[Rfam]
The record is a 47-nucleotide RNA from Parazoarcus communis, which matches "Guanidine-II riboswitch aptamer (mini-ykkC)" in Rfam. Rfam's curators write: Simpler in structure and has fewer highly conserved nucleotide positions than the ykkC-yxkD leader.
RNA sequence: CCCGGAGGACGACCUCCGCGGUUCCGAUCUCCGGCGGGACGACCCGC
Numbered sequence: 001c002c003c004g005g006a007g008g009a010c011g012a013c014c015u016c017c018g019c020g021g022u023u024c025c026g027a028u029c030u031c032c033g034g035c036g037g038g039a040c041g042a043c044c045c046g047c
Stems, first nucleotide, its partner, number of pairs: 001020001003018006034047005